[Rfam]
RNA sequence: CGGCCGGGACGACCCGGCCCACGCAAGGGGCCUUUUCGACCGGGACGGCCCGG
Numbered sequence: 001c002g003g004c005c006g007g008g009a010c011g012a013c014c015c016g017g018c019c020c021a022c023g024c025a026a027g028g029g030g031c032c033u034u035u036u037c038g039a040c041c042g043g044g045a046c047g048g049c050c051c052g053g
Stems, first nucleotide, its partner, number of pairs: 002019007040053005
Dot-bracket structure: .(((((((....)))))))....................(((((....)))))
RNA: Guanidine-II riboswitch aptamer (mini-ykkC)